[Rfam]
RNA sequence: AAACGAGUAAAUCUCAUCCUAAUCUGGUUGCAUUUUCAAUACUUUUUGCUACCGAUUUGGUUUGGGAUUGGCUUGUCU
Numbered sequence: 001a002a003a004c005g006a007g008u009a010a011a012u013c014u015c016a017u018c019c020u021a022a023u024c025u026g027g028u029u030g031c032a033u034u035u036u037c038a039a040u041a042c043u044u045u046u047u048g049c050u051a052c053c054g055a056u057u058u059g060g061u062u063u064g065g066g067a068u069u070g071g072c073u074u075g076u077c078u
Stems, first nucleotide, its partner, number of pairs: 003076006010069007018060002021057004026053003030049002
Dot-bracket structure: ..((((((.(((((((.((.((((.(((.((................)).))))))).))..))))))).))))))..
RNA: mir-259 microRNA precursor family
Organism: Caenorhabditis briggsae